[Rfam]
RNA sequence: AACAAGGUCUUCUAGGGUUCCGGGCUCUCCUCUGGGGAGUCGGCUGGUCCGAGAGAAGGCGCAUCGGCGCGUUAGUCGCCUUGGUGUACACGGCGGGAAAAAAGCCCGGGAGAA
Numbered sequence: 001a002a003c004a005a006g007g008u009c010u011u012c013u014a015g016g017g018u019u020c021c022g023g024g025c026u027c028u029c030c031u032c033u034g035g036g037g038a039g040u041c042g043g044c045u046g047g048u049c050c051g052a053g054a055g056a057a058g059g060c061g062c063a064u065c066g067g068c069g070c071g072u073u074a075g076u077c078g079c080c081u082u083g084g085u086g087u088a089c090a091c092g093g094c095g096g097g098a099a100a101a102a103a104g105c106c107c108g109g110g111a112g113a114a
Base pairs, nucleotide, nucleotide: 007060008059009058010057011056012055015050016049020047021046022044023041024040025039026038027037028036061087062086063085064084065083066080067079068078089109091112095107096106097105
RNA: Guanidine-I riboswitch aptamer
Organism: Paenibacillus stellifer